[Rfam]
MIR2118 microRNA precursor family: a 143-nucleotide RNA from Panicum miliaceum. For this family Rfam cites "A diverse set of microRNAs and microRNA-like small RNAs in developing rice grains" (Zhu et al., Genome Res, 2008). Rfam links the family to the GO terms RISC complex and miRNA-mediated post-transcriptional gene silencing. Pairs were carried over by alignment from the consensus structure, which was predicted with RNAalifold. The organism belongs to Panicum sect. Panicum, within Eukaryota. The match comes from Rfam's covariance-model search (116 bits).

RNA sequence: GUGUGGAAGAGGAAGAAACGAGGGCCUAGGAGCAAUGGGCAUGGAAACAUAGAGGAAGGCCUAGGAUGCAGAGAUCAUUUUGAGUCUUCCUGAUGCCUCCCAUGCCUGUUGUUCUUGGGUGCUCCUUCCUCUUCCUUUCAUCU
Numbered sequence: 001g002u003g004u005g006g007a008a009g010a011g012g013a014a015g016a017a018a019c020g021a022g023g024g025c026c027u028a029g030g031a032g033c034a035a036u037g038g039g040c041a042u043g044g045a046a047a048c049a050u051a052g053a054g055g056a057a058g059g060c061c062u063a064g065g066a067u068g069c070a071g072a073g074a075u076c077a078u079u080u081u082g083a084g085u086c087u088u089c090c091u092g093a094u095g096c097c098u099c100c101c102a103u104g105c106c107u108g109u110u111g112u113u114c115u116u117g118g119g120u121g122c123u124c125c126u127u128c129c130u131c132u133u134c135c136u137u138u139c140a141u142c143u
Stems, first nucleotide, its partner, number of pairs: 009134005015128003020124003025119010036108009046098001048095003052091001054090007